Notes: Mammalian CPEB3 ribozyme: a 76-nucleotide RNA sequence from Alligator sinensis.
Nucleotides: 076
Stems, first nucleotide, its partner, number of pairs: 014043004020076006027039003048065004053060001
Number, partner (000 for none) and nucleotide at each position: 001000a002000u003000c004000g005000u006000a007000g008000g009000u010000u011000c012000a013000a014043g015042g016041c017040c018000a019000c020076a021075g022074c023073a024072g025071a026000a027039g028038u029037g030000c031000u032000c033000a034000a035000g036000g037029u038028g039027u040017g041016g042015c043014c044000c045000u046000g047000u048065c049064a050063g051062a052000c053060u054000c055000c056000a057000a058000c059000a060053a061000a062051u063050c064049u065048g066000u067000g068000a069000a070000c071025u072024c073023u074022g075021c076020u

The organism belongs to Alligator, within Eukaryota.
A search with the family's covariance model found it, with a score of 41 bits.